RNA sequence: GCGGAGAGCCGGAUGGCCGCUGGCGCCGAAAGGUGCGAGAGGAAAGUCCGGACUCCCCAUGACAACGGUGCCGGGUAACGCCCGGGCAGGGCAACCUGACGGACAGCGCCACAGAAAACAAACCGCCCGCCGCACCCGAGGUUCGCCGAGGGAGAUUGCGCACGGGUCAGGAUGAAACGGUGGGGUAAGAGCCCACCGCGCCGCUGGCAACAGGGGUGGCACGGCAAGCCCCACCGGGAGCAAUGCCAAAUAGGACCUCCGCGCGGGCUGGUCCCCUCGGGGAUACCGCCGCUAGGCCGGUCAUGGCCAAGAGAGGUCGGGUUGGCAGCUGGACGCGCGUGGCGACACGCGCGCUAGAGGAAUGGUCAUCGACGGGGCCACGCCCCCGAACAGAAUCCGGCUUACAGGCUCUCCGCGCAU
Numbered sequence: 001g002c003g004g005a006g007a008g009c010c011g012g013a014u015g016g017c018c019g020c021u022g023g024c025g026c027c028g029a030a031a032g033g034u035g036c037g038a039g040a041g042g043a044a045a046g047u048c049c050g051g052a053c054u055c056c057c058c059a060u061g062a063c064a065a066c067g068g069u070g071c072c073g074g075g076u077a078a079c080g081c082c083c084g085g086g087c088a089g090g091g092c093a094a095c096c097u098g099a100c101g102g103a104c105a106g107c108g109c110c111a112c113a114g115a116a117a118a119c120a121a122a123c124c125g126c127c128c129g130c131c132g133c134a135c136c137c138g139a140g141g142u143u144c145g146c147c148g149a150g151g152g153a154g155a156u157u158g159c160g161c162a163c164g165g166g167u168c169a170g171g172a173u174g175a176a177a178c179g180g181u182g183g184g185g186u187a188a189g190a191g192c193c194c195a196c197c198g199c200g201c202c203g204c205u206g207g208c209a210a211c212a213g214g215g216g217u218g219g220c221a222c223g224g225c226a227a228g229c230c231c232c233a234c235c236g237g238g239a240g241c242a243a244u245g246c247c248a249a250a251u252a253g254g255a256c257c258u259c260c261g262c263g264c265g266g267g268c269u270g271g272u273c274c275c276c277u278c279g280g281g282g283a284u285a286c287c288g289c290c291g292c293u294a295g296g297c298c299g300g301u302c303a304u305g306g307c308c309a310a311g312a313g314a315g316g317u318c319g320g321g322u323u324g325g326c327a328g329c330u331g332g333a334c335g336c337g338c339g340u341g342g343c344g345a346c347a348c349g350c351g352c353g354c355u356a357g358a359g360g361a362a363u364g365g366u367c368a369u370c371g372a373c374g375g376g377g378c379c380a381c382g383c384c385c386c387c388g389a390a391c392a393g394a395a396u397c398c399g400g401c402u403u404a405c406a407g408g409c410u411c412u413c414c415g416c417g418c419a420u
Base pairs, nucleotide, nucleotide: 001416002415003414004413005412006411007410008409009408010407011405012370013369014368015367016366017365018364020039021038023036024035025034026033027032044403045402046401048400049399050398051397052396053240054239055238056237066236067235068234069233070232071085072084073083074082075081086100087098088097089096090095101231102230106229107228108225109224110223123171124170125167126166127165128164129163131160132159133158179197180196181195182194183193184192198220199218200217201216202215204213205212206211244327245326246325247324254318255317256316257315258314259313295308296307297306298305334353335352336351337350338349339348340347341346
Rfam assigns this 420-nucleotide sequence from Sedimentitalea arenosa to the family "Bacterial RNase P class A". The family's consensus secondary structure is taken from published work. From the family's description: Ribonuclease P (RNase P) is a ubiquitous endoribonuclease, found in archaea, bacteria and eukarya as well as chloroplasts and mitochondria. The family's RNA type in Rfam is ribozyme. The source organism's lineage runs through Bacteria, Pseudomonadati, Pseudomonadota, Alphaproteobacteria and Sedimentitalea.